Shown here is a 72-nucleotide sequence from Pantoea sp. M_5, a member of the family "Fluoride riboswitch aptamer (crcB RNA motif)". The source organism's lineage runs through Bacteria, Pseudomonadati, Pseudomonadota, Erwiniaceae and Pantoea. On this family, see Baker et al., Science 2012: "Widespread genetic switches and toxicity resistance proteins for fluoride".
[Rfam]
RNA sequence: CCGGCUCAAGGUGAUGGCGUGCCACCUUUCCCAACCGCCGGUGGGCUUAACACCGGCUGAUGACGCCUGACA
Numbered sequence: 001c002c003g004g005c006u007c008a009a010g011g012u013g014a015u016g017g018c019g020u021g022c023c024a025c026c027u028u029u030c031c032c033a034a035c036c037g038c039c040g041g042u043g044g045g046c047u048u049a050a051c052a053c054c055g056g057c058u059g060a061u062g063a064c065g066c067c068u069g070a071c072a
Base pairs, nucleotide, nucleotide: 010026011025012024013023016067017066018065019064020063037057038056039055040054041053042052043051